[Rfam]
RNA sequence: CGCAUGGCUAGGCCGACGGGCCGAAAGCUGGUGAAGCCCGCCAGUUGCCAUGCGCACCAUCUGGGC
Numbered sequence: 001c002g003c004a005u006g007g008c009u010a011g012g013c014c015g016a017c018g019g020g021c022c023g024a025a026a027g028c029u030g031g032u033g034a035a036g037c038c039c040g041c042c043a044g045u046u047g048c049c050a051u052g053c054g055c056a057c058c059a060u061c062u063g064g065g066c
Stems, first nucleotide, its partner, number of pairs: 001054008011022004028044004040066001
Source information
Shown here is a 66-nucleotide RNA from Methylocystis echinoides, a member of the family "int-alpA RNA". The organism belongs to Methylocystis, within Bacteria. By type it is a small RNA. From the family's description: Acidobacteria (1 example), Planctomycetes (1 example), Proteobacteria.